[Rfam]
RNA sequence: UGGGCGGUCAACAAGCGCGGGCCUGGCUCAACGCGGCGGGGCGAGGAGACCACGAGGCGACCGGGAGCGGCUGGGCUCUCGGCUGCGCGCCCUUCGGCCAGGCCGGGAGCCGCGCCAGUCGGAGCCCCCGGCCCAGCGUGGCCCGCCUCCCUCUCGGCGUCCACCUGUCCGGGGUGCUGCCAGCGGGCAUGACCGACCCACCAGGGGCGCCGCCGCCGGCGCUCGCAGGCCGCGGAUGAAGAAGAAGACCCGGCGCCGCUCGACCCGGAGCGAGGAAUUGACCCGGAGCGAGGAGUUGACCCUGAGUGAGGAGGCAACGCGGAGCGAAGAGGCGACCCAGAGUGAGGAGGCGACUCGGAGCGAAGAGAUG
Numbered sequence: 001u002g003g004g005c006g007g008u009c010a011a012c013a014a015g016c017g018c019g020g021g022c023c024u025g026g027c028u029c030a031a032c033g034c035g036g037c038g039g040g041g042c043g044a045g046g047a048g049a050c051c052a053c054g055a056g057g058c059g060a061c062c063g064g065g066a067g068c069g070g071c072u073g074g075g076c077u078c079u080c081g082g083c084u085g086c087g088c089g090c091c092c093u094u095c096g097g098c099c100a101g102g103c104c105g106g107g108a109g110c111c112g113c114g115c116c117a118g119u120c121g122g123a124g125c126c127c128c129c130g131g132c133c134c135a136g137c138g139u140g141g142c143c144c145g146c147c148u149c150c151c152u153c154u155c156g157g158c159g160u161c162c163a164c165c166u167g168u169c170c171g172g173g174g175u176g177c178u179g180c181c182a183g184c185g186g187g188c189a190u191g192a193c194c195g196a197c198c199c200a201c202c203a204g205g206g207g208c209g210c211c212g213c214c215g216c217c218g219g220c221g222c223u224c225g226c227a228g229g230c231c232g233c234g235g236a237u238g239a240a241g242a243a244g245a246a247g248a249c250c251c252g253g254c255g256c257c258g259c260u261c262g263a264c265c266c267g268g269a270g271c272g273a274g275g276a277a278u279u280g281a282c283c284c285g286g287a288g289c290g291a292g293g294a295g296u297u298g299a300c301c302c303u304g305a306g307u308g309a310g311g312a313g314g315c316a317a318c319g320c321g322g323a324g325c326g327a328a329g330a331g332g333c334g335a336c337c338c339a340g341a342g343u344g345a346g347g348a349g350g351c352g353a354c355u356c357g358g359a360g361c362g363a364a365g366a367g368a369u370g
Base pairs, nucleotide, nucleotide: 020104021103022102023101024100025099026098027097038093039092040091041090042089043053045051046050061082062081063080064079065078066077067076068075144352145351146350147349148348149347150346166189167188168187169186170185171184205224206223207222208221209220210219211218212217257272258271259270260269261268
Rfam assigns this 370-nucleotide sequence from Macaca mulatta to the family "Bag-1 internal ribosome entry site (IRES)". This family represents the bag-1 internal ribosome entry site (IRES). When expressed the BAG-1 protein is known to enhance the anti-apoptotic properties of Bcl-2. Although bag-1 translation usually occurs via a cap-dependent mechanism it has been found to contain a IRES in its 5' UTR. Translation via the IRES has been found to be common following heat shock when cap-dependent scanning is compromised. The family's consensus secondary structure was predicted with PFOLD. For this family Rfam cites "The p36 isoform of BAG-1 is translated by internal ribosome entry following heat shock" (Coldwell et al., Oncogene, 2001).